The family of this 65-nucleotide sequence from Pomacea canaliculata is "mir-2 microRNA precursor family".
RNA sequence: GGUGGCAUCAAAGGGUUGGUGAAAUGUUGUUGUGUUCAUAUCACAGCCUACUUUGGUGAGCUUUC
Numbered sequence: 001g002g003u004g005g006c007a008u009c010a011a012a013g014g015g016u017u018g019g020u021g022a023a024a025u026g027u028u029g030u031u032g033u034g035u036u037c038a039u040a041u042c043a044c045a046g047c048c049u050a051c052u053u054u055g056g057u058g059a060g061c062u063u064u065c
Stems, first nucleotide, its partner, number of pairs: 006058008014049002017046001019044004025040003
Dot-bracket structure: .....((((((((((.(.((((..(((..........))))))).).)).)))))))).......
The literature on the family includes a 2001 paper in Cell by Ambros, "microRNAs: tiny regulators with great potential".